[Rfam]
RNA sequence: AAAGUUUCAAACGUUAAAGGUCUAGCCAACCAUGACGACCCCGAGUCAUGCGGCGGCAUUCGUAAGGGUGACGUCGAAGCGUUGACAGGGGAAAGUGCAGGCUGGGUAUUGAGCCGCGAAAAACAAUUCAUUCGGGAUGCCGACCCUGUAAGGAGAAGGGGAAGGCCACAAUCAACACUCCGCAUUGGCGAGGAGUAUUGGUAUCCCGCGAGGUCAGAGACCC
Numbered sequence: 001a002a003a004g005u006u007u008c009a010a011a012c013g014u015u016a017a018a019g020g021u022c023u024a025g026c027c028a029a030c031c032a033u034g035a036c037g038a039c040c041c042c043g044a045g046u047c048a049u050g051c052g053g054c055g056g057c058a059u060u061c062g063u064a065a066g067g068g069u070g071a072c073g074u075c076g077a078a079g080c081g082u083u084g085a086c087a088g089g090g091g092a093a094a095g096u097g098c099a100g101g102c103u104g105g106g107u108a109u110u111g112a113g114c115c116g117c118g119a120a121a122a123a124c125a126a127u128u129c130a131u132u133c134g135g136g137a138u139g140c141c142g143a144c145c146c147u148g149u150a151a152g153g154a155g156a157a158g159g160g161g162a163a164g165g166c167c168a169c170a171a172u173c174a175a176c177a178c179u180c181c182g183c184a185u186u187g188g189c190g191a192g193g194a195g196u197a198u199u200g201g202u203a204u205c206c207c208g209c210g211a212g213g214u215c216a217g218a219g220a221c222c223c
Stems, first nucleotide, its partner, number of pairs: 012037005019031003023191001025189002039091004045086004049081002051076005057070005110217001111215001113214003117210002133208006139166003144160004171202005177196005
RNA: Group II catalytic intron D1-D4-6